[Rfam]
RNA sequence: GGAGGUGAGGGCGAUCUGGCUGCGACAUCUGUCACCCCAUUGAUCGCCAGGGUUGAUUUGGCUGAUCUGGCUGGCUAGGUGGGUGUCCCCUUUCUCCCUCACUGCUCCAUGUGCGUCCCUCCCGAAGCUGUGCGCUCGGUCGAAGAGGACGACCUUCCCGGAUAGAGACGUACCGUUCAUCGGUCAAGGGUAUAUGGUAGCUGCGCUCCCCUGCUAGAACCUCCAUACUCACAAAAGAACACCUCCAGAAGGAGAAAUUAAGAAAUCUGAUAAGAGCGCCUUGGGAUGUAGCAGAUUUAGGUUCAGCU
Numbered sequence: 001g002g003a004g005g006u007g008a009g010g011g012c013g014a015u016c017u018g019g020c021u022g023c024g025a026c027a028u029c030u031g032u033c034a035c036c037c038c039a040u041u042g043a044u045c046g047c048c049a050g051g052g053u054u055g056a057u058u059u060g061g062c063u064g065a066u067c068u069g070g071c072u073g074g075c076u077a078g079g080u081g082g083g084u085g086u087c088c089c090c091u092u093u094c095u096c097c098c099u100c101a102c103u104g105c106u107c108c109a110u111g112u113g114c115g116u117c118c119c120u121c122c123c124g125a126a127g128c129u130g131u132g133c134g135c136u137c138g139g140u141c142g143a144a145g146a147g148g149a150c151g152a153c154c155u156u157c158c159c160g161g162a163u164a165g166a167g168a169c170g171u172a173c174c175g176u177u178c179a180u181c182g183g184u185c186a187a188g189g190g191u192a193u194a195u196g197g198u199a200g201c202u203g204c205g206c207u208c209c210c211c212u213g214c215u216a217g218a219a220c221c222u223c224c225a226u227a228c229u230c231a232c233a234a235a236a237g238a239a240c241a242c243c244u245c246c247a248g249a250a251g252g253a254g255a256a257a258u259u260a261a262g263a264a265a266u267c268u269g270a271u272a273a274g275a276g277c278g279c280c281u282u283g284g285g286a287u288g289u290a291g292c293a294g295a296u297u298u299a300g301g302u303u304c305a306g307c308u
Stems, first nucleotide, its partner, number of pairs: 001108003005102007013093002018090002024087010035074002037070003042067004046062003117170001119167003122139004127135002140162002147158003200292003206288001209285003213281001221276003227271001229270003

The family of this 308-nucleotide RNA sequence from Rostratula benghalensis is "7SK RNA".
Lineage of the source: Eukaryota > Deuterostomia > Craniata > Sauria > Rostratula.
By type it is a non-coding RNA gene.